A member of the RNA family "F6 TB sRNA" from Mycolicibacterium holsaticum, 58 nucleotides long. Lineage of the source: Bacteria > Bacillati > Actinomycetes > Mycobacteriaceae > Mycobacterium (subgen. Mycolicibacterium). A reference for the family is Arnvig and Young (2009), "Identification of small RNAs in Mycobacterium tuberculosis", Mol Microbiol. A search with the family's covariance model found it, with a score of 62 bits. Pairs were carried over by alignment from the consensus structure, which is taken from published work.
RNA sequence: CUGGUAGCUCCGUACUGCCGUCUGACCCCCCGACCCGAUGGCAGUACGGGGCUCUUAA
Numbered sequence: 001c002u003g004g005u006a007g008c009u010c011c012g013u014a015c016u017g018c019c020g021u022c023u024g025a026c027c028c029c030c031c032g033a034c035c036c037g038a039u040g041g042c043a044g045u046a047c048g049g050g051g052c053u054c055u056u057a058a
Stems, first nucleotide, its partner, number of pairs: 002057003007052016